[Rfam]
RNA sequence: CUACUCCCUCCGUUCCAAAAUAGAUGACCCAACUUUGUACUAAUUUAGUACAAAGUUGGGUCAUCUAUUUUGGAACGGAGGGAGUAG
Numbered sequence: 001c002u003a004c005u006c007c008c009u010c011c012g013u014u015c016c017a018a019a020a021u022a023g024a025u026g027a028c029c030c031a032a033c034u035u036u037g038u039a040c041u042a043a044u045u046u047a048g049u050a051c052a053a054a055g056u057u058g059g060g061u062c063a064u065c066u067a068u069u070u071u072g073g074a075a076c077g078g079a080g081g082g083a084g085u086a087g
Base pairs, nucleotide, nucleotide: 003085004084005083007081008080009079010078011077013075014074015073016072017071019069020068021067022066023065024064025063026062027061028060029059030058031057032056033055034054035053036052037051038050039049040048041047
This 87-nucleotide RNA from Triticum aestivum belongs to the Rfam family "MIR1120/MIR1122 microRNA precursor family". For this family Rfam cites "Cloning and characterization of microRNAs from wheat (Triticum aestivum L.)" (Yao et al., Genome Biol, 2007). Taxonomically the source falls in Triticum (Eukaryota, Embryophyta, Mesangiospermae, Triticeae).